[Rfam]
RNA sequence: UCGCAAUCCGCCAGUCGGUUAAGCCGUGUCGCGGAAGGUUUAUCAACCCACUACAGCCCCGGAAACCGGAGCGAAAGGUGAGCG
Numbered sequence: 001u002c003g004c005a006a007u008c009c010g011c012c013a014g015u016c017g018g019u020u021a022a023g024c025c026g027u028g029u030c031g032c033g034g035a036a037g038g039u040u041u042a043u044c045a046a047c048c049c050a051c052u053a054c055a056g057c058c059c060c061g062g063a064a065a066c067c068g069g070a071g072c073g074a075a076a077g078g079u080g081a082g083c084g
Stems, first nucleotide, its partner, number of pairs: 002084003007035005016026004037048004049080004056072002059069004
SucA RNA motif: an 84-nucleotide RNA sequence from Piscinibacter sp. HJYY11.
A reference for the family is Weinberg et al. (2007), "Identification of 22 candidate structured RNAs in bacteria using the CMfinder comparative genomics pipeline", Nucleic Acids Res.
By type it is a cis-regulatory element.
The organism belongs to Piscinibacter, within Bacteria.